This 53-nucleotide RNA belongs to the Rfam family "Mu-gpT-DE RNA". By type it is a small RNA.

RNA sequence: CCCUGACAGGUGCAUCCCGCGCCUGACACUAGCCACGACAGGAGAUACUCAUG
Numbered sequence: 001c002c003c004u005g006a007c008a009g010g011u012g013c014a015u016c017c018c019g020c021g022c023c024u025g026a027c028a029c030u031a032g033c034c035a036c037g038a039c040a041g042g043a044g045a046u047a048c049u050c051a052u053g
Base pairs, nucleotide, nucleotide: 002042003041004040005039007025008024009023010022011021